Overview: The record is a 123-nucleotide RNA from Escherichia coli, which matches "EFASI RNA" in Rfam. The family's RNA type in Rfam is small RNA.

RNA sequence: UCGUUCUGAUGUCUGGAGGCGUCAGCGCUGGCUGACGGGGAGUAAAACAUCGCCCUGGUGCACAGGUAGCGAACUCCUGUAAAAACUCAACACGUGCACGCUCUGCUACAUAGACAUCAUACG
Numbered sequence: 001u002c003g004u005u006c007u008g009a010u011g012u013c014u015g016g017a018g019g020c021g022u023c024a025g026c027g028c029u030g031g032c033u034g035a036c037g038g039g040g041a042g043u044a045a046a047a048c049a050u051c052g053c054c055c056u057g058g059u060g061c062a063c064a065g066g067u068a069g070c071g072a073a074c075u076c077c078u079g080u081a082a083a084a085a086c087u088c089a090a091c092a093c094g095u096g097c098a099c100g101c102u103c104u105g106c107u108a109c110a111u112a113g114a115c116a117u118c119a120u121a122c123g
Stems, first nucleotide, its partner, number of pairs: 002123003007119008020037006038078004050072004054066004
The family's consensus secondary structure is taken from published work.